[Rfam]
RNA: Bacterial RNase P class A
RNA sequence: GCAGCACUUCGGCACUGUCGCUGGUGUUGCAAGACACGAGAGGAAAGUCCGGGCAGCAAAGAGUAUCCUGCUUCCGAAAAUGAAAGCUAUUGGCAACAGUAGAUGUAGGCAGAAGAAAACAACCGCCUUGGCAACGAGGCAAGGGUGAGAAGGUAGUGUAAGAGACUACCAGCACGCAGGCGACUGCGUGGCUGUGCCGUUCAGGAGCUGCAAGUUCAUGUAAACCGUUGUCUGAGGGUUACUCGCCCGAGCCAUACACGGCACGACGGAGGGUAGAACGCUAAAACGCACGGGGCGACUCGGCGGUUAGAUAAAUGACAGGCGUCCGUACUUGUCGAAAGACGGUAGGGAAACAAGACCCGGCUUACAGAAGUACUGCUUUA
Numbered sequence: 001g002c003a004g005c006a007c008u009u010c011g012g013c014a015c016u017g018u019c020g021c022u023g024g025u026g027u028u029g030c031a032a033g034a035c036a037c038g039a040g041a042g043g044a045a046a047g048u049c050c051g052g053g054c055a056g057c058a059a060a061g062a063g064u065a066u067c068c069u070g071c072u073u074c075c076g077a078a079a080a081u082g083a084a085a086g087c088u089a090u091u092g093g094c095a096a097c098a099g100u101a102g103a104u105g106u107a108g109g110c111a112g113a114a115g116a117a118a119a120c121a122a123c124c125g126c127c128u129u130g131g132c133a134a135c136g137a138g139g140c141a142a143g144g145g146u147g148a149g150a151a152g153g154u155a156g157u158g159u160a161a162g163a164g165a166c167u168a169c170c171a172g173c174a175c176g177c178a179g180g181c182g183a184c185u186g187c188g189u190g191g192c193u194g195u196g197c198c199g200u201u202c203a204g205g206a207g208c209u210g211c212a213a214g215u216u217c218a219u220g221u222a223a224a225c226c227g228u229u230g231u232c233u234g235a236g237g238g239u240u241a242c243u244c245g246c247c248c249g250a251g252c253c254a255u256a257c258a259c260g261g262c263a264c265g266a267c268g269g270a271g272g273g274u275a276g277a278a279c280g281c282u283a284a285a286a287c288g289c290a291c292g293g294g295g296c297g298a299c300u301c302g303g304c305g306g307u308u309a310g311a312u313a314a315a316u317g318a319c320a321g322g323c324g325u326c327c328g329u330a331c332u333u334g335u336c337g338a339a340a341g342a343c344g345g346u347a348g349g350g351a352a353a354c355a356a357g358a359c360c361c362g363g364c365u366u367a368c369a370g371a372a373g374u375a376c377u378g379c380u381u382u383a
Stems, first nucleotide, its partner, number of pairs: 001379004006374005011368001012323002015321005021040002024037005045366003049363005054210004061259001063257002066206005071086003075082001087102001089100004103201001108198004123144002125140006152170006172192001173190007214279004225269005251262003287305003291302004